[Rfam]
RNA: Glycine riboswitch aptamer
RNA sequence: GCAGGUUCUGCGGGAGAGAGAGGCGAAGCCGCCUCCGCCGAAGGCGCAAGCUCCCAUCAUCGCUCAGGCACACCGGACCGCAGGAACAUU
Number, nucleotide and partner (000 for none) at each position: 001g000002c000003a000004g000005g000006u085007u084008c083009u082010g081011c080012g079013g078014g000015a000016g000017a000018g000019a000020g035021a034022g033023g032024c000025g000026a000027a000028g000029c000030c000031g000032c023033c022034u021035c020036c000037g069038c068039c067040g065041a064042a000043g000044g063045c062046g061047c000048a000049a000050g058051c000052u000053c000054c000055c000056a000057u000058c050059a000060u000061c046062g045063c044064u041065c040066a000067g039068g038069c037070a000071c000072a000073c000074c000075g000076g000077a000078c013079c012080g011081c010082a009083g008084g007085a006086a000087c000088a000089u000090u000